[Rfam]
RNA sequence: GUGCGAGCUGACGCUCUCACACUCCUCACACCCCCCGGCCCGGCGCGUUCGGGCUUU
Numbered sequence: 001g002u003g004c005g006a007g008c009u010g011a012c013g014c015u016c017u018c019a020c021a022c023u024c025c026u027c028a029c030a031c032c033c034c035c036c037g038g039c040c041c042g043g044c045g046c047g048u049u050c051g052g053g054c055u056u057u
Stems, first nucleotide, its partner, number of pairs: 001020003005016004037055007
A member of the RNA family "Cyanobacterial functional RNA 1" from Synechococcus sp. KORDI-100, 57 nucleotides long. Taxonomically the source falls in Synechococcus (Bacteria, Cyanobacteriota, Synechococcales, Synechococcaceae). Rfam classes the family as a small RNA. The match comes from Rfam's covariance-model search (65 bits).